RNA sequence: GGACGAGCCUCUGGAGAGACUCCGCAAGGAGCACCGAAGGAGCAAGCUGCUUUCCCAGUGCAGUGAAACUCUCAGGUAAAAGGACAGAGUGGACCCA
Numbered sequence: 001g002g003a004c005g006a007g008c009c010u011c012u013g014g015a016g017a018g019a020c021u022c023c024g025c026a027a028g029g030a031g032c033a034c035c036g037a038a039g040g041a042g043c044a045a046g047c048u049g050c051u052u053u054c055c056c057a058g059u060g061c062a063g064u065g066a067a068a069c070u071c072u073c074a075g076g077u078a079a080a081a082g083g084a085c086a087g088a089g090u091g092g093a094c095c096c097a
Base pairs, nucleotide, nucleotide: 009089010088011087012086013085020031021030022029023028033077034076035075036073037072040071041070042069046064047063048062049061050060